[Rfam]
RNA sequence: UGGACAGAUUAUUGUAUUUGAAUGUAUUCGACUAUAUUCACGGCGCAAAACAGGGGAUUAUUAAACGGAAAGUGAAUCAAUUAACAUAAUAGACUCCU
Number, nucleotide and partner (000 for none) at each position: 001u000002g097003g096004a095005c000006a000007g000008a000009u092010u091011a090012u089013u088014g087015u086016a000017u084018u083019u000020g082021a081022a000023u079024g078025u000026a077027u076028u075029c074030g000031a073032c072033u000034a000035u067036a000037u065038u057039c000040a000041c000042g000043g000044c000045g000046c000047a000048a000049a000050a000051c000052a000053g000054g000055g000056g000057a038058u000059u000060a000061u000062u000063a000064a000065a037066c000067g035068g000069a000070a000071a000072g032073u031074g029075a028076a027077u026078c024079a023080a000081u021082u020083a018084a017085c000086a015087u014088a013089a012090u011091a010092g009093a000094c000095u004096c003097c002098u000

A member of the RNA family "MIR6152 microRNA precursor family" from Nicotiana attenuata, 98 nucleotides long. The family has 2 seed sequences and 5,807 matches in Rfam 15.1.